[Rfam]
RNA sequence: UGUCCCUGGCCUCGGCAGAGUGGCAUCUGGCUGGUGGUGUCCACCUCAUAUGAGUCAGGGACAAAGCAACCCCUUCUUCAUCCCAGCCUGGCUUUUGGACAGCGCCCUUGCCUGGUUCAUGCCCUGGACACAUGG
Dot-bracket structure: ((((((((..((((...(((.((((((........))))))...)))...)))).))))))))...........(.((((.........(((...(((.(.(.((....)).).).))).))).)))).).....
Numbered sequence: 001u002g003u004c005c006c007u008g009g010c011c012u013c014g015g016c017a018g019a020g021u022g023g024c025a026u027c028u029g030g031c032u033g034g035u036g037g038u039g040u041c042c043a044c045c046u047c048a049u050a051u052g053a054g055u056c057a058g059g060g061a062c063a064a065a066g067c068a069a070c071c072c073c074u075u076c077u078u079c080a081u082c083c084c085a086g087c088c089u090g091g092c093u094u095u096u097g098g099a100c101a102g103c104g105c106c107c108u109u110g111c112c113u114g115g116u117u118c119a120u121g122c123c124c125u126g127g128a129c130a131c132a133u134g135g
Stems, first nucleotide, its partner, number of pairs: 001063008011054004018047003022041006075130001077128004090123003096119003100115001102113001104111002
A member of the RNA family "Small nucleolar RNA SNORA48" from Tupaia belangeri, 135 nucleotides long. Rfam classes the family as an H/ACA-box small nucleolar RNA. A search with the family's covariance model found it, with a score of 140 bits. The snoRNA ACA 48 has been identified to guide pseudouridylation of the residue U3797 in the 28S rRNA subunit. Lineage of the source: Eukaryota > Craniata > Gnathostomata > Tupaiidae > Tupaia belangeri. Pairs were carried over by alignment from the consensus structure, which was predicted with RNAalifold.